[Rfam]
Nucleotides: 074
Stems, first nucleotide, its partner, number of pairs: 001073007010026004028044005050066005
Number, partner (000 for none) and nucleotide at each position: 001073g002072c003071g004070a005069u006068c007067g008000u009000g010026g011025c012024g013023c014000a015000a016000u017000u018000g019000g020000u021000u022000a023013g024012c025011g026010c027000a028044c029043c030042g031041g032040c033000u034000u035000g036000u037000g038000a039000u040032g041031c042030c043029g044028g045000g046000g047000g048000u049000u050066g051065c052064g053063g054062g055000u056000u057000c058000a059000a060000g061000u062054c063053c064052c065051g066050u067007c068006g069005g070004u071003c072002g073001c074000c